[Rfam]
RNA sequence: ACACGAGAAAGGAGGUGGUCUGAAUUGAAGUAUCGGACACGUGAGGUGGCUGCGCGCUAGCCGCUGUCAUCGACGACGGGAUUGUCGACCGCGCAGCGGCCGGCGAAUACCACGCAGUCACCCGGCCCCCGAGCCAUCCGGUCCGUCCGACCGGAAUCCGCCGACCAGGCGUCCGCGGAGAACGGCUCGGGGGCCGUUUGCG
Numbered sequence: 001a002c003a004c005g006a007g008a009a010a011g012g013a014g015g016u017g018g019u020c021u022g023a024a025u026u027g028a029a030g031u032a033u034c035g036g037a038c039a040c041g042u043g044a045g046g047u048g049g050c051u052g053c054g055c056g057c058u059a060g061c062c063g064c065u066g067u068c069a070u071c072g073a074c075g076a077c078g079g080g081a082u083u084g085u086c087g088a089c090c091g092c093g094c095a096g097c098g099g100c101c102g103g104c105g106a107a108u109a110c111c112a113c114g115c116a117g118u119c120a121c122c123c124g125g126c127c128c129c130c131g132a133g134c135c136a137u138c139c140g141g142u143c144c145g146u147c148c149g150a151c152c153g154g155a156a157u158c159c160g161c162c163g164a165c166c167a168g169g170c171g172u173c174c175g176c177g178g179a180g181a182a183c184g185g186c187u188c189g190g191g192g193g194c195c196g197u198u199u200g201c202g
Base pairs, nucleotide, nucleotide: 015053016052017051018050019049055105056104057103058102060100061099063097064096065095066094068091123196124195125194126193127192128191129190130189131188132187133186134185135184137155138154139153140152141151142150
Dot-bracket structure: ..............(((((.............................))))).((((.((.((((.(......................)..)))).)).)))).................(((((((((((((.((((((.......))))))............................)))))))))))))......